[Rfam]
Shown here is a 97-nucleotide RNA sequence from Camellia sinensis, a member of the family "Small nucleolar RNA Z266". Pairs were carried over by alignment from the consensus structure, which was predicted with PFOLD.
RNA sequence: AGUUGGCAAGAAUGAUGAAUCUAUAUAGAUGUGAGAGGAGAAAAUCUUUUGUGAGCCUCCAAUAUAUAAUGCUUAUUGAUAUUCUGACUUGCCUUUU
Numbered sequence: 001a002g003u004u005g006g007c008a009a010g011a012a013u014g015a016u017g018a019a020u021c022u023a024u025a026u027a028g029a030u031g032u033g034a035g036a037g038g039a040g041a042a043a044a045u046c047u048u049u050u051g052u053g054a055g056c057c058u059c060c061a062a063u064a065u066a067u068a069a070u071g072c073u074u075a076u077u078g079a080u081a082u083u084c085u086g087a088c089u090u091g092c093c094u095u096u097u
Stems, first nucleotide, its partner, number of pairs: 001097002005093006
The source organism's lineage runs through Eukaryota, Viridiplantae, Streptophytina, Theaceae and Camellia.
It is annotated as a C/D-box small nucleolar RNA.
Its family is annotated with RNA processing and nucleolus in the Gene Ontology.